[Rfam]
RNA: TPP riboswitch aptamer (THI element)
RNA sequence: GUGUGGCACCAGGGGUGCUUGCCCUGUUUCCAUAACUAGCAAAGCUAGGGUUGUUGACAGGAGUAGGCUGAGAAAGUCCCUUUGAACCUGAGCAGGGUAAUGCCUGCGUAGGGAGUGUGCCUUUCUUUUGUU
Numbered sequence: 001g002u003g004u005g006g007c008a009c010c011a012g013g014g015g016u017g018c019u020u021g022c023c024c025u026g027u028u029u030c031c032a033u034a035a036c037u038a039g040c041a042a043a044g045c046u047a048g049g050g051u052u053g054u055u056g057a058c059a060g061g062a063g064u065a066g067g068c069u070g071a072g073a074a075a076g077u078c079c080c081u082u083u084g085a086a087c088c089u090g091a092g093c094a095g096g097g098u099a100a101u102g103c104c105u106g107c108g109u110a111g112g113g114a115g116u117g118u119g120c121c122u123u124u125c126u127u128u129u130g131u132u
Stems, first nucleotide, its partner, number of pairs: 006120004011081004016075001017068005087112004093106004